[Rfam]
RNA sequence: CAUAUGCUUGUCUCAGAGAUUAAGCCAUGCAUGUCCAAGUACAGACCUUAAAACGGUGAAACCGCGAAUGGCUCAUUAAAUCAGCUAUGGUUCCUUAGAUCGUACUAGCUACAUGGAUAACUGUAGUAAUUCUAGAGCUAAUACAUGCCACUAUGCCCUGACCCGCAAGGGAACGGGUGGAUUUAUUAGAACAGAACCAACCGGGAACGGCUUCGGCCGUUCCUGUUGAACUCUGUGAUGACUCUGGAUAACUUUACUGAUCGCAGUCGGCCUUGUGUCGGCGACGGAUCUUUCAAAUGUCUGCCCUAUCAACUUUCGAUGGUAGGUGAUCUGCCUACCAUGGUGAUAACGGGUAACGGGGAAUCAGGGUUCGAUUCCGGAGAGGGAGCCUGAGAAACGGCUACCACAUCCAAGGAAGGCAGCAGGCGCGAAAAUUACCCACUCCCGGCACGGGGAGGUAGUGACGAAAAAUACGAAUACGGGACUCACUCGAGGCUCCGUAAUUCGAAUGAGUACAAUCUAAAUCCUUUAACGAGGACCAAUUGGAGGGCAAGUCUGGUGCCAGCAGCCGCGGUAACUCCAGCUCCAAAAGCGUAU
Dot-bracket structure: .(((((((..(.((..((.....(((.(((..((....((....((.........))...)).))......(((.......(((..((..((....((((...........((((.....((.(((.....))).))......)))).......((((...((......))...))))....(((((........(.((.....................(.(....).).....)).).......))))).........((((...((((.....))))))))...))))...))))..))).(((....(((....((((((((.......)))))))))))......)))...((((((((....))))...))))))).((.(((..........))).)).(.((....)).)...)))))).).....(.(((...(((((...))))).)))).)...)).).....(((((((((.(((....)))..)))))).)))......(((.((.........))).)).........((((((.......((((.....((....)).......)))))))))).)))))))
RNA: Eukaryotic small subunit ribosomal RNA, nucleotides 25 to 621